[Rfam]
The family of this 352-nucleotide RNA sequence from Silicimonas algicola is "Alphaproteobacteria transfer-messenger RNA". The family's consensus secondary structure is taken from published work.
RNA sequence: ACCCUUUCCUAACGCCUCUCGUGCCCUUAUAUGUUCCGUGUUCCGGCAACGGAACUAUGGACAUAAACGCGCCCGUAAUAAGCGGAUCGGACCCGGGGGCGGUACCCGGCGGCUCCACCAAACAUCCCGAUUGGGGGAUCCUGGGGCCGAAACAGGAUCGACGGACGUCUAAAGGGGUAUGCUUUGUCCCGGUGAGGUACCACCGUUAUCGGUCCAAAUCGCAUAGUUGCCAAUACCAACCGUGCUCCGGUCGCGCUCGCUGCUUAAGCAGUGCGCAACACCGAAACUUAAGUCCUUGCGCUUAGCGGCGUAAGGCGGGGCCUGACGGAGCCUGGCAACAGAAUCCGUCGCU
Numbered sequence: 001a002c003c004c005u006u007u008c009c010u011a012a013c014g015c016c017u018c019u020c021g022u023g024c025c026c027u028u029a030u031a032u033g034u035u036c037c038g039u040g041u042u043c044c045g046g047c048a049a050c051g052g053a054a055c056u057a058u059g060g061a062c063a064u065a066a067a068c069g070c071g072c073c074c075g076u077a078a079u080a081a082g083c084g085g086a087u088c089g090g091a092c093c094c095g096g097g098g099g100c101g102g103u104a105c106c107c108g109g110c111g112g113c114u115c116c117a118c119c120a121a122a123c124a125u126c127c128c129g130a131u132u133g134g135g136g137g138a139u140c141c142u143g144g145g146g147c148c149g150a151a152a153c154a155g156g157a158u159c160g161a162c163g164g165a166c167g168u169c170u171a172a173a174g175g176g177g178u179a180u181g182c183u184u185u186g187u188c189c190c191g192g193u194g195a196g197g198u199a200c201c202a203c204c205g206u207u208a209u210c211g212g213u214c215c216a217a218a219u220c221g222c223a224u225a226g227u228u229g230c231c232a233a234u235a236c237c238a239a240c241c242g243u244g245c246u247c248c249g250g251u252c253g254c255g256c257u258c259g260c261u262g263c264u265u266a267a268g269c270a271g272u273g274c275g276c277a278a279c280a281c282c283g284a285a286a287c288u289u290a291a292g293u294c295c296u297u298g299c300g301c302u303u304a305g306c307g308g309c310g311u312a313a314g315g316c317g318g319g320g321c322c323u324g325a326c327g328g329a330g331c332c333u334g335g336c337a338a339c340a341g342a343a344u345c346c347g348u349c350g351c352u
Stems, first nucleotide, its partner, number of pairs: 040055005059189005069182002071178004083167002087164003093109005110149007190205004196215002199213003318333004324349006
Record summary:
Bacterial tmRNA, also known as 10Sa RNA or SsrA, is named for its dual tRNA and mRNA-like properties. Its role is to liberate the mRNA from a stalled ribosome. To accomplish this part of the tmRNA is used as a reading frame that ends in a translation stop signal. The broken mRNA is replaced in the ribosome by the tmRNA and translation of the tmRNA leads to addition of a proteolysis tag to the incomplete protein enabling recognition by a protease. NCBI's taxonomy places the organism under Bacteria, Pseudomonadati, Alphaproteobacteria, Paracoccaceae, Silicimonas.